[Rfam]
RNA sequence: AGAUUCCCACCGAGAAAGAACUAACCAUUCACUCGUAGUGAGUCUUGGAGGAUCAGGGGUAACUUUUAUCUUUAAGCGUAGACAGUUAGCUAAUGGGCUGUAAGCCAAUAUGGUUGAAGGGAUUGAGCUCCGAAAUACCAAAACGAGAGGGCUGAUGUCUUUGCCUGAUCAGAAAGCAACAUUCUUAUUUUCGUUAGGGUGAGAAGUUAAGAACCUCUCCGGAGUCGUUGACCA
Numbered sequence: 001a002g003a004u005u006c007c008c009a010c011c012g013a014g015a016a017a018g019a020a021c022u023a024a025c026c027a028u029u030c031a032c033u034c035g036u037a038g039u040g041a042g043u044c045u046u047g048g049a050g051g052a053u054c055a056g057g058g059g060u061a062a063c064u065u066u067u068a069u070c071u072u073u074a075a076g077c078g079u080a081g082a083c084a085g086u087u088a089g090c091u092a093a094u095g096g097g098c099u100g101u102a103a104g105c106c107a108a109u110a111u112g113g114u115u116g117a118a119g120g121g122a123u124u125g126a127g128c129u130c131c132g133a134a135a136u137a138c139c140a141a142a143a144c145g146a147g148a149g150g151g152c153u154g155a156u157g158u159c160u161u162u163g164c165c166u167g168a169u170c171a172g173a174a175a176g177c178a179a180c181a182u183u184c185u186u187a188u189u190u191u192c193g194u195u196a197g198g199g200u201g202a203g204a205a206g207u208u209a210a211g212a213a214c215c216u217c218u219c220c221g222g223a224g225u226c227g228u229u230g231a232c233c234a
Stems, first nucleotide, its partner, number of pairs: 011035004018030003022202001024200002038086002042083004046078002048073006055066004125226001127225006145219006151177003156171002182213006189206004

The family of this 234-nucleotide sequence from Aquibacillus salsiterrae is "Group II catalytic intron D1-D4-6". Group II introns are found in rRNA, tRNA and mRNA of organelles in fungi, plants and protists, and also in mRNA in bacteria.